The record is a 57-nucleotide RNA from Streptomyces sp. NRRL F-5630, which matches "L17-Actino-Proteobacteria ribosomal protein leader" in Rfam. For this family Rfam cites "Discovery of 20 novel ribosomal leader candidates in bacteria and archaea" (Eckert and Weinberg, BMC Microbiol, 2020). By type it is a cis-regulatory leader. Taxonomically the source falls in Streptomyces (Bacteria, Bacillati, Actinomycetota, Actinomycetes).

[Rfam]
RNA sequence: CCGUCGGGGGUCUCCCCGCGCGGACACUGUCGUCGGUACCUCGUACGGCCGGCGCAG
Numbered sequence: 001c002c003g004u005c006g007g008g009g010g011u012c013u014c015c016c017c018g019c020g021c022g023g024a025c026a027c028u029g030u031c032g033u034c035g036g037u038a039c040c041u042c043g044u045a046c047g048g049c050c051g052g053c054g055c056a057g
Stems, first nucleotide, its partner, number of pairs: 001023004005018004027057003031054007